[Rfam]
RNA: MIR7725 microRNA precursor family
RNA sequence: AAGAUGGUUUAUUAGGUGAUGAGCUUUCGUGGGCCAGACCCACUUCCUCAGAUCAAAUUGUGGAAGAAAAUUGAUCUUCCACAAUUUGAUCUGAGGAAGUGGGUCUGGCCCACGAAAGCUCAUCACCUAAUAAACCAUCUU
Numbered sequence: 001a002a003g004a005u006g007g008u009u010u011a012u013u014a015g016g017u018g019a020u021g022a023g024c025u026u027u028c029g030u031g032g033g034c035c036a037g038a039c040c041c042a043c044u045u046c047c048u049c050a051g052a053u054c055a056a057a058u059u060g061u062g063g064a065a066g067a068a069a070a071u072u073g074a075u076c077u078u079c080c081a082c083a084a085u086u087u088g089a090u091c092u093g094a095g096g097a098a099g100u101g102g103g104u105c106u107g108g109c110c111c112a113c114g115a116a117a118g119c120u121c122a123u124c125a126c127c128u129a130a131u132a133a134a135c136c137a138u139c140u141u
Stems, first nucleotide, its partner, number of pairs: 002140002005137006012130007020122018041101004046096012059083002062080003066076002